[Rfam]
RNA sequence: AUAAAGGGGCUGUGACGGAGAGGACAAUCUAGGCGGCUGUCGGUAGCAAUACUGGCGGCUUCUUCCCUUCUCCUCUCCAUAAUGUCAUGGCGGCGCCGUUGUGGCAAUGCCACCGAAACGUCAUCAAGAGUUUUGGCAGCUGUAAUUUUUCGGUCUCGCGACCUUAAGGGACGUCCCUUGGCUUCGCU
Numbered sequence: 001a002u003a004a005a006g007g008g009g010c011u012g013u014g015a016c017g018g019a020g021a022g023g024a025c026a027a028u029c030u031a032g033g034c035g036g037c038u039g040u041c042g043g044u045a046g047c048a049a050u051a052c053u054g055g056c057g058g059c060u061u062c063u064u065c066c067c068u069u070c071u072c073c074u075c076u077c078c079a080u081a082a083u084g085u086c087a088u089g090g091c092g093g094c095g096c097c098g099u100u101g102u103g104g105c106a107a108u109g110c111c112a113c114c115g116a117a118a119c120g121u122c123a124u125c126a127a128g129a130g131u132u133u134u135g136g137c138a139g140c141u142g143u144a145a146u147u148u149u150u151c152g153g154u155c156u157c158g159c160g161a162c163c164u165u166a167a168g169g170g171a172c173g174u175c176c177c178u179u180g181g182c183u184u185c186g187c188u
Base pairs, nucleotide, nucleotide: 008141009140010139011138012137013087014086015085016084017083088112089111090110091109092108095105096104097103098102113136114135115134116133117132118131119130159186160185161184163181164180166178168177169176170175
Rfam assigns this 188-nucleotide sequence from Syncephalis pseudoplumigaleata to the family "U11 spliceosomal RNA".
On this family, see Montzka and Steitz, Proc Natl Acad Sci U S A 1988: "Additional low-abundance human small nuclear ribonucleoproteins: U11, U12, etc".
The match comes from Rfam's covariance-model search (45 bits).
The organism belongs to Syncephalis, within Eukaryota.
The base pairs follow the family's consensus structure, which is taken from published work.